[Rfam]
RNA sequence: AUACUUACCUGGACGGGGUCGAUGGGUGAUCAGAAAGGCUCAUGGCCUAAGCAAGCGGCCUCCAUUGCACUGAGGAGGGGCGCUUGCCUAAGGUCUCCCCUAGUGGGAGAGCCUACGUCAUAAUUUGUGGUAGUGGGGGCCUGCGUACGCGCGGCCCCUGU
Numbered sequence: 001a002u003a004c005u006u007a008c009c010u011g012g013a014c015g016g017g018g019u020c021g022a023u024g025g026g027u028g029a030u031c032a033g034a035a036a037g038g039c040u041c042a043u044g045g046c047c048u049a050a051g052c053a054a055g056c057g058g059c060c061u062c063c064a065u066u067g068c069a070c071u072g073a074g075g076a077g078g079g080g081c082g083c084u085u086g087c088c089u090a091a092g093g094u095c096u097c098c099c100c101u102a103g104u105g106g107g108a109g110a111g112c113c114u115a116c117g118u119c120a121u122a123a124u125u126u127g128u129g130g131u132a133g134u135g136g137g138g139g140c141c142u143g144c145g146u147a148c149g150c151g152c153g154g155c156c157c158c159u160g161u
Stems, first nucleotide, its partner, number of pairs: 012119004016048006023042005049089001051087001055083003059079003062075002091114003094110003098106002134160005142153004
The family of this 161-nucleotide sequence from Theobroma cacao is "U1 spliceosomal RNA". A search with the family's covariance model found it, with a score of 138 bits. The family has 100 seed sequences and 40,184 matches in Rfam 15.1. Lineage of the source: Eukaryota > Streptophytina > Magnoliopsida > Pentapetalae > Theobroma. Its family is annotated with mRNA 5'-splice site recognition, pre-mRNA 5'-splice site binding and U1 snRNP in the Gene Ontology. By type it is a spliceosomal small nuclear RNA.